The family of this 236-nucleotide RNA from Dictyoglomus turgidum is "Dictyoglomi-1 RNA".
Lineage of the source: Bacteria > Pseudomonadati > Dictyoglomia > Dictyoglomales > Dictyoglomus turgidum.
Rfam's curators put it in the seed alignment.
Rfam classes the family as a small RNA.
Pairs were carried over by alignment from the consensus structure, which is taken from published work.
RNA sequence: UGCCACAGGCAUCAAGGGGUCCGAAAGGCUCCUGAGUGCACUUGGCUGGGACUAAGUAAGUCCCGGAGGCUCAAGGAAAGGUAAGGGGUAAAAACCCUUACUAAGUACUUGAGAUCUAGAAAGUAACAGGGGUAUUGAUAAAGCUCGGUACCUCUGUGAAAUCUGGAAGAAUCUGGGAUGAAAGGUCUCAGAGGGUGCAAGGGAGAGGCUGAGUAGGGUCCGUUGAGCCUGUGGCA
Numbered sequence: 001u002g003c004c005a006c007a008g009g010c011a012u013c014a015a016g017g018g019g020u021c022c023g024a025a026a027g028g029c030u031c032c033u034g035a036g037u038g039c040a041c042u043u044g045g046c047u048g049g050g051a052c053u054a055a056g057u058a059a060g061u062c063c064c065g066g067a068g069g070c071u072c073a074a075g076g077a078a079a080g081g082u083a084a085g086g087g088g089u090a091a092a093a094a095c096c097c098u099u100a101c102u103a104a105g106u107a108c109u110u111g112a113g114a115u116c117u118a119g120a121a122a123g124u125a126a127c128a129g130g131g132g133u134a135u136u137g138a139u140a141a142a143g144c145u146c147g148g149u150a151c152c153u154c155u156g157u158g159a160a161a162u163c164u165g166g167a168a169g170a171a172u173c174u175g176g177g178a179u180g181a182a183a184g185g186u187c188u189c190a191g192a193g194g195g196u197g198c199a200a201g202g203g204a205g206a207g208g209c210u211g212a213g214u215a216g217g218g219u220c221c222g223u224u225g226a227g228c229c230u231g232u233g234g235c236a
Stems, first nucleotide, its partner, number of pairs: 001236010012226004017221002021217002027210002029205005037199006046191008060179008072111004080102008115167006126157013
Dot-bracket structure: ((((((((((.((((.((..((....(((((((...((((((...((((((((......((((((((....((((....((((((((.......)))))))).....))))...((((((.....(((((((((((((......)))))))))))))....))))))....))))))))....))))))))..)))))).)))))...)).....))..)).))))))))))))))